[Rfam]
RNA sequence: UAAGACAGUGAUGAGUGAAUACAGACCUGUAAUGAAUUGCGAAGAUGAUCGCAGCUCAUUCUAUGAACAUCUGAGGGACUGAGUCUUC
Dot-bracket structure: .(((((............................................................................))))).
Record summary
This 88-nucleotide sequence from Carnegiea gigantea belongs to the Rfam family "Small nucleolar RNA SNORD25". Its family is annotated with RNA processing and nucleolus in the Gene Ontology. Taxonomically the source falls in Carnegiea (Eukaryota, Pentapetalae, Caryophyllales, Cactineae). The literature on the family includes a 1996 paper in Nature by Tycowski et al., "A mammalian gene with introns instead of exons generating stable RNA products".